[Rfam]
Nucleotides: 134
Base pairs, nucleotide, nucleotide: 003061004060005059006058007057008056018046019045020044024039025038027036072127073126074125075124076123087113088112089111090110091109092108094106095105
Number, partner (000 for none) and nucleotide at each position: 001000c002000u003061g004060c005059a006058g007057g008056c009000u010000g011000u012000u013000c014000a015000g016000c017000a018046a019045g020044g021000c022000u023000c024039g025038g026000c027036c028000a029000g030000u031000c032000a033000u034000g035000u036027g037000a038025c039024c040000u041000u042000g043000u044020c045019c046018u047000u048000u049000c050000c051000u052000g053000u054000a055000u056008g057007u058006c059005u060004g061003c062000u063000a064000g065000a066000g067000a068000a069000a070000c071000u072127c073126g074125g075124g076123g077000u078000g079000g080000u081000u082000u083000g084000a085000g086000g087113c088112c089111u090110g091109g092108c093000a094106g095105c096000u097000u098000c099000c100000c101000c102000u103000u104000c105095g106094c107000u108092g109091u110090c111089a112088g113087g114000u115000u116000a117000u118000a119000g120000a121000a122000a123076c124075c125074u126073c127072g128000u129000a130000u131000a132000a133000a134000u